Nucleotides: 138
Stems, first nucleotide, its partner, number of pairs: 002044001005016002022037004027032001049064004069086005091104004111131008
Number, partner (000 for none) and nucleotide at each position: 001000u002044u003000u004000c005016g006015c007000a008000g009000u010000u011000u012000u013000a014000c015006g016005c017000c018000u019000u020000g021000u022037u023036a024035a025034c026000c027032u028000u029000u030000c031000u032027a033000a034025g035024u036023u037022a038000u039000u040000g041000a042000u043000c044002a045000u046000c047000u048000u049064g050063u051062c052061c053000a054000g055000a056000c057000u058000u059000c060000u061052g062051g063050a064049u065000c066000u067000u068000c069086g070085a071084g072083u073082g074000g075000c076000u077000c078000c079000c080000g081000u082073c083072a084071c085070u086069c087000a088000u089000u090000u091104g092103a093102c094101g095000c096000c097000u098000c099000c100000c101094u102093g103092u104091c105000u106000a107000c108000u109000c110000u111131g112130a113129g114128c115127c116126g117125c118124g119000c120000u121000u122000g123000u124118c125117g126116c127115g128114g129113c130112u131111c132000u133000u134000u135000u136000u137000u138000g

Source information
The record is a 138-nucleotide RNA from Hartmannibacter diazotrophicus, which matches "Alphaproteobacterial sRNA BjrC1505" in Rfam.